Shown here is a 149-nucleotide RNA sequence from Aquarana catesbeiana, a member of the family "U12 minor spliceosomal RNA". Rfam links the family to the GO terms U12 snRNP, pre-mRNA branch point binding and mRNA branch site recognition. The family is grouped with related families in Rfam's "U2 clan". It is annotated as a spliceosomal small nuclear RNA. The source organism's lineage runs through Eukaryota, Deuterostomia, Vertebrata, Euteleostomi and Aquarana. The base pairs follow the family's consensus structure.

Nucleotides: 149
Stems, first nucleotide, its partner, number of pairs: 004023005032053008054068005082149005090144007099133001102130005108124005
Number, partner (000 for none) and nucleotide at each position: 001000a002000u003000g004023c005022c006021u007020u008019a009000a010000a011000c012000u013000a014000a015000u016000g017000a018000g019008u020007a021006a022005g023004g024000a025000a026000a027000a028000u029000a030000a031000c032053g033052a034051a035050c036049u037048g038047g039046g040000g041000u042000g043000a044000u045000g046039c047038c048037u049036g050035g051034u052033u053032c054068c055067u056066c057065a058064c059000u060000a061000c062000u063000u064058g065057u066056g067055a068054g069000a070000a071000g072000a073000a074000u075000u076000u077000u078000u079000g080000a081000a082149c083148g084147g085146g086145u087000c088000a089000a090144a091143g092142g093141u094140c095139u096138u097000c098000c099133c100000g101000u102130g103129g104128a105127g106126g107000a108124u109123c110122u111121g112120c113000u114000u115000a116000c117000u118000u119000u120112g121111c122110a123109g124108g125000a126106c127105c128104u129103u130102c131000u132000g133099g134000u135000g136000c137000u138096g139095a140094g141093a142092u143091c144090u145086g146085c147084c148083c149082g
Rfam 15.1 lists 2,106 matches to the family in 1,170 species.